[Rfam]
RNA sequence: UUUUAGCCCCGAUUGAAGCAAGUAUCCUUUUUCACGGCAGUUCGAGUUCGCUUACAAAGCGAGUAUGGAGAACACGUGAAAAAGAUACUGCGUAAAGCGGGAAUAGCU
Numbered sequence: 001u002u003u004u005a006g007c008c009c010c011g012a013u014u015g016a017a018g019c020a021a022g023u024a025u026c027c028u029u030u031u032u033c034a035c036g037g038c039a040g041u042u043c044g045a046g047u048u049c050g051c052u053u054a055c056a057a058a059g060c061g062a063g064u065a066u067g068g069a070g071a072a073c074a075c076g077u078g079a080a081a082a083a084g085a086u087a088c089u090g091c092g093u094a095a096a097g098c099g100g101g102a103a104u105a106g107c108u
Base pairs, nucleotide, nucleotide: 009100010099011098013096014095018091019090024086025085026084030081031080032079033078034077035076036075